Rfam assigns this 224-nucleotide RNA from Streptomyces bungoensis to the family "Streptomyces sRNA 4677".
Located in the intergenic region between anti-sigma factor SCO4677 gene and a putative regulatory protein gene SCO4676. scr4677 expression requires the SCO4677 activity and scr4677 sRNA itself seem to affect the levels of the SCO4676-associated transcripts.
It scores 75 bits against the family's covariance model.
The base pairs follow the family's consensus structure.
RNA sequence: GGGUCCGGCGGGCCACUGACCUCCUGAGAGAACCGGGGGAAAGAACCACCCGCCCGCCCACCCUCCCCGCCGGAAGGCGCACGUCACCCGUCCGAGUGACCAGCUUGCAGGGGUGGGACACGGACCGUUACGUUCGCCGCACAACCCAACACAGACGACGGCCCCCGGCCGGGACGGCAAUCCCGAUCGAGGGCCUGACCGAUCAGGAAGCAGAGACCUUCCCG
Numbered sequence: 001g002g003g004u005c006c007g008g009c010g011g012g013c014c015a016c017u018g019a020c021c022u023c024c025u026g027a028g029a030g031a032a033c034c035g036g037g038g039g040a041a042a043g044a045a046c047c048a049c050c051c052g053c054c055c056g057c058c059c060a061c062c063c064u065c066c067c068c069g070c071c072g073g074a075a076g077g078c079g080c081a082c083g084u085c086a087c088c089c090g091u092c093c094g095a096g097u098g099a100c101c102a103g104c105u106u107g108c109a110g111g112g113g114u115g116g117g118a119c120a121c122g123g124a125c126c127g128u129u130a131c132g133u134u135c136g137c138c139g140c141a142c143a144a145c146c147c148a149a150c151a152c153a154g155a156c157g158a159c160g161g162c163c164c165c166c167g168g169c170c171g172g173g174a175c176g177g178c179a180a181u182c183c184c185g186a187u188c189g190a191g192g193g194c195c196u197g198a199c200c201g202a203u204c205a206g207g208a209a210g211c212a213g214a215g216a217c218c219u220u221c222c223c224g
Stems, first nucleotide, its partner, number of pairs: 007203001009201002011071003084099004089094001112138005160195005166189002171184004206222005